RNA sequence: ACCACCCUUUUCUUGGGGUUGCGCUACUAUCCAAGAAGUGCAUAGCGAGGGCAGCACUACUAAUGCCUACACAGCACUCCCAUCUCAGCUGGAGCUUUGCUUUACCUUGGUGGAAUUUUUGGAAAA
Numbered sequence: 001a002c003c004a005c006c007c008u009u010u011u012c013u014u015g016g017g018g019u020u021g022c023g024c025u026a027c028u029a030u031c032c033a034a035g036a037a038g039u040g041c042a043u044a045g046c047g048a049g050g051g052c053a054g055c056a057c058u059a060c061u062a063a064u065g066c067c068u069a070c071a072c073a074g075c076a077c078u079c080c081c082a083u084c085u086c087a088g089c090u091g092g093a094g095c096u097u098u099g100c101u102u103u104a105c106c107u108u109g110g111u112g113g114a115a116u117u118u119u120u121g122g123a124a125a126a
Stems, first nucleotide, its partner, number of pairs: 006018004021060001023058001027054002030051003038046002080113005090104006
Description: This 126-nucleotide sequence from Rhinopithecus roxellana belongs to the Rfam family "U4atac minor spliceosomal RNA". The family has 61 seed sequences and 1,648 matches in Rfam 15.1. The match comes from Rfam's covariance-model search (76 bits). The literature on the family includes a 2005 paper in RNA by Lorkovic et al., "Evolutionary conservation of minor U12-type spliceosome between plants and humans". The family's RNA type in Rfam is spliceosomal small nuclear RNA. NCBI's taxonomy places the organism under Eukaryota, Teleostomi, Euteleostomi, Mammalia, Rhinopithecus. Gene Ontology terms of the family: spliceosomal tri-snRNP complex assembly, mRNA 5'-splice site recognition and U4atac snRNP.